[Rfam]
RNA sequence: UGAAGGAGCUGAUGAGGCUUGUAGCCAUAAUGUCUGAACCUGGCAGAAGCCUCAUUGAUGAAAGAACUCUUAGUUUCUCUGAGGCUGCUCCAUGU
Numbered sequence: 001u002g003a004a005g006g007a008g009c010u011g012a013u014g015a016g017g018c019u020u021g022u023a024g025c026c027a028u029a030a031u032g033u034c035u036g037a038a039c040c041u042g043g044c045a046g047a048a049g050c051c052u053c054a055u056u057g058a059u060g061a062a063a064g065a066a067c068u069c070u071u072a073g074u075u076u077c078u079c080u081g082a083g084g085c086u087g088c089u090c091c092a093u094g095u
Stems, first nucleotide, its partner, number of pairs: 004089002007086004
RNA: Small nucleolar RNA SNORD91 family